[Rfam]
RNA: c-di-GMP-I riboswitch aptamer
Organism: Desulfitobacterium hafniense
Nucleotides: 088
Base pairs, nucleotide, nucleotide: 012037013036017032018031019030020029021028022027040082041081042080043079045078046077047076048073049072050071056066057065058064
Number, partner (000 for none) and nucleotide at each position: 001000a002000u003000u004000c005000g006000a007000c008000a009000a010000u011000a012037g013036c014000a015000a016000a017032c018031c019030u020029g021028g022027c023000g024000a025000a026000a027022g028021c029020c030019a031018g032017g033000g034000a035000c036013g037012c038000a039000a040082a041081g042080c043079u044000a045078u046077g047076g048073g049072u050071c051000u052000u053000c054000c055000u056066g057065g058064a059000u060000a061000c062000a063000c064058u065057c066056c067000u068000g069000a070000u071050g072049a073048u074000c075000g076047c077046c078045a079043a080042g081041c082040u083000a084000c085000c086000g087000a088000a